[Rfam]
Nucleotides: 047
Stems, first nucleotide, its partner, number of pairs: 001020008033046005
Number, partner (000 for none) and nucleotide at each position: 001020c002019c003018u004017g005016g006015g007014a008013c009000u010000u011000g012000c013008g014007u015006c016005c017004c018003a019002g020001g021000c022000u023000u024000u025000c026000g027000c028000a029000u030000g031000c032000c033046g034045u035044c036043g037042c038000g039000u040000u041000c042037g043036c044035g045034a046033c047000u